[Rfam]
RNA sequence: GAGCAUAUCCGUAGACCUUGUCUUAUUCUACUCGUGGCAGGCUGGGGGGAACAGUGUAUGCCAGAUUAAUUGAAGUUCAUAUGAGUUGUAAGCUUUUAAAUCAGUAACUGGAUAAUUUGCAAUACUCCCAACAGUC
Numbered sequence: 001g002a003g004c005a006u007a008u009c010c011g012u013a014g015a016c017c018u019u020g021u022c023u024u025a026u027u028c029u030a031c032u033c034g035u036g037g038c039a040g041g042c043u044g045g046g047g048g049g050a051a052c053a054g055u056g057u058a059u060g061c062c063a064g065a066u067u068a069a070u071u072g073a074a075g076u077u078c079a080u081a082u083g084a085g086u087u088g089u090a091a092g093c094u095u096u097u098a099a100a101u102c103a104g105u106a107a108c109u110g111g112a113u114a115a116u117u118u119g120c121a122a123u124a125c126u127c128c129c130a131a132c133a134g135u136c
Stems, first nucleotide, its partner, number of pairs: 003061006016047005022041003072128001074126002077124001080121001082119001093110001096107001
RNA: Small nucleolar RNA SNORA58